[Rfam]
RNA sequence: GCGAUUCGGGUGCCGUGAGGCCUCGGUCCGCUCGACAAACGGCCCUGGCGCACCUUCCCCGGCGCCAGGUUCAACGGGCGGGCGGGGACCUGACGUCACCCGAACGCAUGUA
Numbered sequence: 001g002c003g004a005u006u007c008g009g010g011u012g013c014c015g016u017g018a019g020g021c022c023u024c025g026g027u028c029c030g031c032u033c034g035a036c037a038a039a040c041g042g043c044c045c046u047g048g049c050g051c052a053c054c055u056u057c058c059c060c061g062g063c064g065c066c067a068g069g070u071u072c073a074a075c076g077g078g079c080g081g082g083c084g085g086g087g088a089c090c091u092g093a094c095g096u097c098a099c100c101c102g103a104a105c106g107c108a109u110g111u112a
Base pairs, nucleotide, nucleotide: 006103007102008101009100010099011098012097019090020089022087023086024085026083027082028081029080030079031078032077033076034075041072042071044069045068046067047066048065049064050063051062